This 78-nucleotide RNA from Mesocricetus auratus belongs to the Rfam family "Small nucleolar RNA SNORD26". A reference for the family is Tycowski et al. (1996), "A small nucleolar RNA requirement for site-specific ribose methylation of rRNA in Xenopus", Proc Natl Acad Sci U S A. Its Rfam clan is "SNORD26 clan". Lineage of the source: Eukaryota > Eumetazoa > Amniota > Glires > Mesocricetus.

[Rfam]
RNA sequence: CUGCAGGGAUGAUUUAGAUCCUGAACUCUCUCUUUCUGAUGCUAUAGUGGAGAAGACAGGAAAAUGUCUCUGAGUAGC
Numbered sequence: 001c002u003g004c005a006g007g008g009a010u011g012a013u014u015u016a017g018a019u020c021c022u023g024a025a026c027u028c029u030c031u032c033u034u035u036c037u038g039a040u041g042c043u044a045u046a047g048u049g050g051a052g053a054a055g056a057c058a059g060g061a062a063a064a065u066g067u068c069u070c071u072g073a074g075u076a077g078c
Stems, first nucleotide, its partner, number of pairs: 001077004